[Rfam]
RNA sequence: UUGCAAUAGCAACAAUAUAAAUUACCUACAGCAGUUCACCUAGUGAGUGUUGAUACUUUCAGUCUGAGCAA
Numbered sequence: 001u002u003g004c005a006a007u008a009g010c011a012a013c014a015a016u017a018u019a020a021a022u023u024a025c026c027u028a029c030a031g032c033a034g035u036u037c038a039c040c041u042a043g044u045g046a047g048u049g050u051u052g053a054u055a056c057u058u059u060c061a062g063u064c065u066g067a068g069c070a071a
Stems, first nucleotide, its partner, number of pairs: 002070003009025001011023001